Rfam assigns this 105-nucleotide RNA to the family "Mitochondrial DNA control region secondary structure A". Rfam 15.1 lists 795 matches to the family in 62 species.

RNA sequence: UUCUUUCAUGGGGAAGCAAAUUUAAGUGCCACCCAAGUAUUGGCUCAUUCACUAUAACCGCUAUGUAUUUCGUACAUUACUGCCAGCCACCAUGAAUAUUAUAUA
Numbered sequence: 001u002u003c004u005u006u007c008a009u010g011g012g013g014a015a016g017c018a019a020a021u022u023u024a025a026g027u028g029c030c031a032c033c034c035a036a037g038u039a040u041u042g043g044c045u046c047a048u049u050c051a052c053u054a055u056a057a058c059c060g061c062u063a064u065g066u067a068u069u070u071c072g073u074a075c076a077u078u079a080c081u082g083c084c085a086g087c088c089a090c091c092a093u094g095a096a097u098a099u100u101a102u103a104u105a
Base pairs, nucleotide, nucleotide: 005096006095007094008093009092010091011090012088013087016083017082018081022036023035026032027031037058038057041054042053043052063077064076065075066074067073
Source information:
It is one of the family's seed sequences.